Notes: A member of the RNA family "freshwater-2 RNA", 81 nucleotides long. By type it is a cis-regulatory element.

[Rfam]
RNA sequence: UAACGCAUCCUGCGUUUUAUGCGGAUACCACCGCGUAGUGGCUAGAACCCACAUCGGACUUCUUUAAGGAGAAAACAAAUG
Number, nucleotide and partner (000 for none) at each position: 001u000002a016003a015004c014005g013006c012007a000008u000009c000010c000011u000012g006013c005014g004015u003016u002017u000018u037019a036020u035021g034022c033023g032024g031025a000026u000027a000028c000029c000030a000031c024032c023033g022034c021035g020036u019037a018038g052039u051040g050041g049042c000043u000044a000045g000046a000047a000048c000049c041050c040051a039052c038053a000054u000055c000056g000057g000058a000059c000060u000061u000062c000063u000064u000065u000066a000067a000068g000069g000070a000071g000072a000073a000074a000075a000076c000077a000078a000079a000080u000081g000